[Rfam]
RNA sequence: UUUUUCCCGAGAGUUCCCUUGACCACUUCAUGAGGGCUUAAUUACUUCAUUUCUGAUGUCCUGCUGAAGUGUUUGGGGGAACUCCUGGGAUCAC
Numbered sequence: 001u002u003u004u005u006c007c008c009g010a011g012a013g014u015u016c017c018c019u020u021g022a023c024c025a026c027u028u029c030a031u032g033a034g035g036g037c038u039u040a041a042u043u044a045c046u047u048c049a050u051u052u053c054u055g056a057u058g059u060c061c062u063g064c065u066g067a068a069g070u071g072u073u074u075g076g077g078g079g080a081a082c083u084c085c086u087g088g089g090a091u092c093a094c
Base pairs, nucleotide, nucleotide: 005090006089007088008087009086011084012083013082014081015080016079017078018077019076020075022074024071025070026069027068028067029066030065033062034061035060
RNA: mir-395 microRNA precursor family
Organism: Solanum commersonii